[Rfam]
RNA sequence: UUGCUUUAGGGAAGAACAAGUCCCUGAUAAUUGAAUUCAUUCAUCACUUUGUCAGCAUCACAAUGUGUGUAUUUUGCUGAUCAUUAUUGGAUGGCACAAAU
Numbered sequence: 001u002u003g004c005u006u007u008a009g010g011g012a013a014g015a016a017c018a019a020g021u022c023c024c025u026g027a028u029a030a031u032u033g034a035a036u037u038c039a040u041u042c043a044u045c046a047c048u049u050u051g052u053c054a055g056c057a058u059c060a061c062a063a064u065g066u067g068u069g070u071a072u073u074u075u076g077c078u079g080a081u082c083a084u085u086a087u088u089g090g091a092u093g094g095c096a097c098a099a100a101u
Base pairs, nucleotide, nucleotide: 037094038093039092040091041090051081052080053079054078055077056076057075

Small nucleolar RNA snoR99: a 101-nucleotide sequence from Capsicum annuum. A reference for the family is Marker et al. (2002), "Experimental RNomics: identification of 140 candidates for small non-messenger RNAs in the plant Arabidopsis thaliana", Curr Biol. It scores 75 bits against the family's covariance model. The base pairs follow the family's consensus structure, which was predicted with WAR. Lineage of the source: Eukaryota > Mesangiospermae > asterids > Solanaceae > Capsicum. Rfam 15.1 lists 733 matches to the family in 222 species.